Background: Shown here is an 86-nucleotide RNA sequence from Denitrovibrio acetiphilus, a member of the family "ZMP/ZTP riboswitch aptamer (pfl RNA motif)". The match comes from Rfam's covariance-model search (61 bits). NCBI's taxonomy places the organism under Bacteria, Deferribacterota, Deferribacterales, Denitrovibrio, Denitrovibrio acetiphilus.
RNA sequence: ACUUAGCUGUAUGACUGACGCUUUUGGAGGAGAACACCUCCGGGGAGUACAGCAAUUAUAAGAAGCCGUGCGUCUGGGCUGUUUCA
Dot-bracket structure: ...(.(((((((..(([[[[[.....((((......))))..))..))))))).)........((((..]]]]]..))))......